[Rfam]
RNA sequence: UUGUGGCAAGAAUGAUGAAACAAUUAGAUGAGUGAAUGGAGAUAUCCAUGAACUAAACUUUCGAGGCUUUUUUUUUUUUGAACAGUUCGAGGCUUAUUGAUAUUCUGACUUUGCCACUC
Numbered sequence: 001u002u003g004u005g006g007c008a009a010g011a012a013u014g015a016u017g018a019a020a021c022a023a024u025u026a027g028a029u030g031a032g033u034g035a036a037u038g039g040a041g042a043u044a045u046c047c048a049u050g051a052a053c054u055a056a057a058c059u060u061u062c063g064a065g066g067c068u069u070u071u072u073u074u075u076u077u078u079u080g081a082a083c084a085g086u087u088c089g090a091g092g093c094u095u096a097u098u099g100a101u102a103u104u105c106u107g108a109c110u111u112u113g114c115c116a117c118u119c
Stems, first nucleotide, its partner, number of pairs: 003117008